[Rfam]
RNA sequence: AUCGUUCAAUCUGAUUAUUCAGAUCGGAAGUAGGUUAAACCGAAGGAACGCGGA
Numbered sequence: 001a002u003c004g005u006u007c008a009a010u011c012u013g014a015u016u017a018u019u020c021a022g023a024u025c026g027g028a029a030g031u032a033g034g035u036u037a038a039a040c041c042g043a044a045g046g047a048a049c050g051c052g053g054a
Stems, first nucleotide, its partner, number of pairs: 003050005009024005027051001033041003
Description
The family of this 54-nucleotide sequence is "Glutamine riboswitch aptamer (glnA leader)". The base pairs follow the family's consensus structure, which is taken from published work. Rfam links the family to the GO term glutamine binding. Rfam's curators put it in the seed alignment.